[Rfam]
RNA sequence: CAGUAUUUAUUUCAUUACCAGUUUGCACAUUUAACAGUUAUGUUAAGUGUGCAAUUUGGUAAUGAUAUAAAUAGCU
Numbered sequence: 001c002a003g004u005a006u007u008u009a010u011u012u013c014a015u016u017a018c019c020a021g022u023u024u025g026c027a028c029a030u031u032u033a034a035c036a037g038u039u040a041u042g043u044u045a046a047g048u049g050u051g052c053a054a055u056u057u058g059g060u061a062a063u064g065a066u067a068u069a070a071a072u073a074g075c076u
Stems, first nucleotide, its partner, number of pairs: 004073007012065009024053013

A member of the RNA family "mir-3003 microRNA precursor family" from Hydra vulgaris, 76 nucleotides long. Rfam links the family to the GO terms RISC complex and miRNA-mediated post-transcriptional gene silencing. The family's consensus secondary structure was predicted with RNAalifold.